[Rfam]
RNA sequence: GGAAGCUGGUUUCAGGUGGUGGCUUAGAGUAACUCUGUAAAGAAUCUAGCACCAUUUGAAAUCAGUGUUCU
Numbered sequence: 001g002g003a004a005g006c007u008g009g010u011u012u013c014a015g016g017u018g019g020u021g022g023c024u025u026a027g028a029g030u031a032a033c034u035c036u037g038u039a040a041a042g043a044a045u046c047u048a049g050c051a052c053c054a055u056u057u058g059a060a061a062u063c064a065g066u067g068u069u070c071u
Stems, first nucleotide, its partner, number of pairs: 001071004005066010016055006025048004
RNA: mir-29 microRNA precursor family
Organism: Electrophorus electricus